[Rfam]
RNA sequence: GCGCCCGUAGCUCAACGGAUAGAGCACUUGACUACGGAUCAAGAGGUUGCAGGUUCGAGUCCUGCCGGGCGCA
Numbered sequence: 001g002c003g004c005c006c007g008u009a010g011c012u013c014a015a016c017g018g019a020u021a022g023a024g025c026a027c028u029u030g031a032c033u034a035c036g037g038a039u040c041a042a043g044a045g046g047u048u049g050c051a052g053g054u055u056c057g058a059g060u061c062c063u064g065c066c067g068g069g070c071g072c073a
Base pairs, nucleotide, nucleotide: 001072002071003070004069005068006067007066010025011024012023013022027043028042029041030040031039049065050064051063052062053061
Shown here is a 73-nucleotide sequence from Jatrophihabitans endophyticus, a member of the family "tRNA".
NCBI's taxonomy places the organism under Bacteria, Actinomycetes, Jatrophihabitantales, Jatrophihabitantaceae, Jatrophihabitans.
Its family is annotated with triplet codon-amino acid adaptor activity in the Gene Ontology.
Transfer RNA (tRNA) molecules are approximately 80 nucleotides in length.
The base pairs follow the family's consensus structure, which is taken from published work.
It is annotated as a transfer RNA.